[Rfam]
RNA: Plant signal recognition particle RNA
Organism: Ceratodon purpureus
RNA sequence: UCUGGGCGGAGUAGCGAUCGCCUGUCACCCGAGCGGGAGCAGAGAAGUGUGGACAUGGGGCGCCGUGCUCGGGCCUUCGGGGGCUUGUAGAGGGUCUGCCCACUCCAAACUUGGAGUCGUCAGCUGGAUCCCACCGAAGGGUUGGAUACAGCGGGUGUUAGAGAGGGGGGCACUGCGUCAGGCGGGGAACCGAGCAGCGCUUACCCCUCGCUCUGGGUAGUGGAGGGACAACAGGCCUGAAUGUCCUCCGUUGAUAACCUGACAUGGAAUGUUCCUGUGGACCGCUUCU
Numbered sequence: 001u002c003u004g005g006g007c008g009g010a011g012u013a014g015c016g017a018u019c020g021c022c023u024g025u026c027a028c029c030c031g032a033g034c035g036g037g038a039g040c041a042g043a044g045a046a047g048u049g050u051g052g053a054c055a056u057g058g059g060g061c062g063c064c065g066u067g068c069u070c071g072g073g074c075c076u077u078c079g080g081g082g083g084c085u086u087g088u089a090g091a092g093g094g095u096c097u098g099c100c101c102a103c104u105c106c107a108a109a110c111u112u113g114g115a116g117u118c119g120u121c122a123g124c125u126g127g128a129u130c131c132c133a134c135c136g137a138a139g140g141g142u143u144g145g146a147u148a149c150a151g152c153g154g155g156u157g158u159u160a161g162a163g164a165g166g167g168g169g170g171c172a173c174u175g176c177g178u179c180a181g182g183c184g185g186g187g188a189a190c191c192g193a194g195c196a197g198c199g200c201u202u203a204c205c206c207c208u209c210g211c212u213c214u215g216g217g218u219a220g221u222g223g224a225g226g227g228a229c230a231a232c233a234g235g236c237c238u239g240a241a242u243g244u245c246c247u248c249c250g251u252u253g254a255u256a257a258c259c260u261g262a263c264a265u266g267g268a269a270u271g272u273u274c275c276u277g278u279g280g281a282c283c284g285c286u287u288c289u
Stems, first nucleotide, its partner, number of pairs: 002039002004023006028037003043289007059273003063267005069262005077254002081247003085241002092238007100227002103225005109218009118157004123152004128147004133142003158163001165208005175200004183192003